A member of the RNA family "Small nucleolar RNA snoR145" from Rosa chinensis, 150 nucleotides long. Rfam classes the family as an H/ACA-box small nucleolar RNA. Gene Ontology terms of the family: RNA processing and nucleolus. It scores 105 bits against the family's covariance model. On this family, see Chen and Wu, Nucleic Acids Res 2009: "Mining small RNA sequencing data: a new approach to identify small nucleolar RNAs in Arabidopsis".
RNA sequence: AUUUGAAGGUCCCAGUGGAGGGGAAGCUACUCUUUAAUUGAGGCCUCUCUAACAUUUGAAAACAAACCUUCACAUAAUCACUUGCCAAAUCGUACUACUCUCAGAGUUCUGUUUCUUUUCUGAGUGUCUUGAACCCUUGGCUACAUUUUU
Number, nucleotide and partner (000 for none) at each position: 001a000002u000003u000004u072005g071006a070007a069008g068009g067010u000011c020012c000013c018014a000015g000016u000017g000018g013019a000020g011021g000022g000023g000024a000025a048026g047027c000028u000029a000030c042031u041032c040033u000034u000035u000036a000037a000038u000039u000040g032041a031042g030043g000044c000045c000046u000047c026048u025049c000050u000051a000052a000053c000054a000055u000056u000057u000058g000059a000060a000061a000062a000063c000064a000065a000066a000067c009068c008069u007070u006071c005072a004073c000074a000075u000076a000077a000078u000079c000080a000081c000082u000083u000084g141085c140086c139087a138088a137089a000090u000091c000092g000093u000094a000095c000096u000097a127098c000099u000100c124101u123102c122103a121104g120105a119106g118107u000108u000109c000110u000111g000112u000113u000114u000115c000116u000117u000118u106119u105120c104121u103122g102123a101124g100125u000126g000127u097128c000129u000130u000131g000132a000133a000134c000135c000136c000137u088138u087139g086140g085141c084142u000143a000144c000145a000146u000147u000148u000149u000150u000